[Rfam]
Description
The family of this 75-nucleotide sequence from Equus caballus is "mir-202 microRNA precursor family". The organism belongs to Equus, within Eukaryota. The match comes from Rfam's covariance-model search (88 bits). Rfam links the family to the GO terms RISC complex and miRNA-mediated post-transcriptional gene silencing.
RNA sequence: UCGUUCCUUCUUCCUAUGCAUAUACUUCUUUGAGGGUCGGUCCUAAAGAGGUGUAGGCAUGGGAAAAUGGGGCGA
Numbered sequence: 001u002c003g004u005u006c007c008u009u010c011u012u013c014c015u016a017u018g019c020a021u022a023u024a025c026u027u028c029u030u031u032g033a034g035g036g037u038c039g040g041u042c043c044u045a046a047a048g049a050g051g052u053g054u055a056g057g058c059a060u061g062g063g064a065a066a067a068u069g070g071g072g073c074g075a
Stems, first nucleotide, its partner, number of pairs: 011065009021055003025051008